The record is a 77-nucleotide RNA sequence from Ovis aries, which matches "Small nucleolar RNA SNORD47" in Rfam. Gene Ontology terms of the family: RNA processing and nucleolus. The match comes from Rfam's covariance-model search (95 bits).
RNA sequence: AACCAGUGAUGUGAUGAUUCUGCCAAAUGAAUAGAAUGAUAUCAACCAAAAAACCGUUCCAUUUUAAUUCUGAGGUU
Numbered sequence: 001a002a003c004c005a006g007u008g009a010u011g012u013g014a015u016g017a018u019u020c021u022g023c024c025a026a027a028u029g030a031a032u033a034g035a036a037u038g039a040u041a042u043c044a045a046c047c048a049a050a051a052a053a054c055c056g057u058u059c060c061a062u063u064u065u066a067a068u069u070c071u072g073a074g075g076u077u
Base pairs, nucleotide, nucleotide: 001077002076003075004074